[Rfam]
RNA sequence: AUCACAUUUGGCAAUGAGGUCUGCCUUUAACCGCUCAAAAUGAGCUGAUGACUUCUACUGAUAA
Numbered sequence: 001a002u003c004a005c006a007u008u009u010g011g012c013a014a015u016g017a018g019g020u021c022u023g024c025c026u027u028u029a030a031c032c033g034c035u036c037a038a039a040a041u042g043a044g045c046u047g048a049u050g051a052c053u054u055c056u057a058c059u060g061a062u063a064a
Stems, first nucleotide, its partner, number of pairs: 010025004016055006033045004
RNA: Fluoride riboswitch aptamer (crcB RNA motif)